[Rfam]
RNA sequence: GGUUUCCAUUGGUGCAAAUCCAAUCACCUUAAUUUGAGAUGAAAAUCAAUUCCCCAUUGGUAUCAAAUAUUAUCCAUUGGCAGUGAAUUAUAU
Numbered sequence: 001g002g003u004u005u006c007c008a009u010u011g012g013u014g015c016a017a018a019u020c021c022a023a024u025c026a027c028c029u030u031a032a033u034u035u036g037a038g039a040u041g042a043a044a045a046u047c048a049a050u051u052c053c054c055c056a057u058u059g060g061u062a063u064c065a066a067a068u069a070u071u072a073u074c075c076a077u078u079g080g081c082a083g084u085g086a087a088u089u090a091u092a093u
Stems, first nucleotide, its partner, number of pairs: 009023004052083001055080001056077002059074004
RNA: Plastid-rps12 3UTR RNA
Organism: Actinidia chinensis